[Rfam]
RNA sequence: UAGGUGCUGUACAACUGGCGGAAUAAAAUGGCGCAAAAGCCAUGGGGAGUACGGCCUUAGUUUGAAUUAUGUCGACCGCCUGGGCAACCUGU
Numbered sequence: 001u002a003g004g005u006g007c008u009g010u011a012c013a014a015c016u017g018g019c020g021g022a023a024u025a026a027a028a029u030g031g032c033g034c035a036a037a038a039g040c041c042a043u044g045g046g047g048a049g050u051a052c053g054g055c056c057u058u059a060g061u062u063u064g065a066a067u068u069a070u071g072u073c074g075a076c077c078g079c080c081u082g083g084g085c086a087a088c089c090u091g092u
Base pairs, nucleotide, nucleotide: 003058004057006055007054008053009052010051011050012049015046016045017080018079019078020077021076028043029042030041031040070086071085072084073083
RNA: ZMP/ZTP riboswitch aptamer (pfl RNA motif)